The record is an 85-nucleotide sequence from Sporosarcina sp. BI001-red, which matches "c-di-GMP-I riboswitch aptamer" in Rfam.
[Rfam]
RNA sequence: CGAUGAAAAAGGCAAAGCCACUGAAAAGUGGUGACGCAAAACUGAAGGGACUAAGGGAUAUUACCUAUGUCAGCCAGUUGUCGAG
Numbered sequence: 001c002g003a004u005g006a007a008a009a010a011g012g013c014a015a016a017g018c019c020a021c022u023g024a025a026a027a028g029u030g031g032u033g034a035c036g037c038a039a040a041a042c043u044g045a046a047g048g049g050a051c052u053a054a055g056g057g058a059u060a061u062u063a064c065c066u067a068u069g070u071c072a073g074c075c076a077g078u079u080g081u082c083g084a085g
Stems, first nucleotide, its partner, number of pairs: 012037002017032006040079004047075002049071003056065002
Pairs were carried over by alignment from the consensus structure, which is taken from published work. Taxonomically the source falls in Sporosarcina (Bacteria, Bacillati, Bacillota, Caryophanales). Its Rfam clan is "c-di-GMP_I riboswitch clan". On this family, see Sudarsan et al., Science 2008: "Riboswitches in Eubacteria Sense the Second Messenger Cyclic Di-GMP".